A member of the RNA family "Small nucleolar RNA SNORA77" from Anabas testudineus, 130 nucleotides long. NCBI's taxonomy places the organism under Eukaryota, Gnathostomata, Neopterygii, Acanthomorphata, Anabas. Pairs were carried over by alignment from the consensus structure, which was predicted with RNAalifold. Its family is annotated with nucleolus and RNA processing in the Gene Ontology. The family's RNA type in Rfam is H/ACA-box small nucleolar RNA.

[Rfam]
RNA sequence: GCAGACACACUCUGUUCUUUGCUGCCCCCUUCCAGCCUUGGACUUUUUCUGUCUGCUACAUGAACAUGCAGAAUGUAAUACUUGACCAUCUUUCUAAAAGGCUGGUGUCACUAUGUUCUGCUACAUUAUC
Numbered sequence: 001g002c003a004g005a006c007a008c009a010c011u012c013u014g015u016u017c018u019u020u021g022c023u024g025c026c027c028c029c030u031u032c033c034a035g036c037c038u039u040g041g042a043c044u045u046u047u048u049c050u051g052u053c054u055g056c057u058a059c060a061u062g063a064a065c066a067u068g069c070a071g072a073a074u075g076u077a078a079u080a081c082u083u084g085a086c087c088a089u090c091u092u093u094c095u096a097a098a099a100g101g102c103u104g105g106u107g108u109c110a111c112u113a114u115g116u117u118c119u120g121c122u123a124c125a126u127u128a129u130c
Stems, first nucleotide, its partner, number of pairs: 001056006014043004022035003068121005073114002075111002078108003083104002086101002
ACA63 (SNORA77) is a member of the H/ACA class of snoRNAs that guide the sites of modification of uridines to pseudouridines.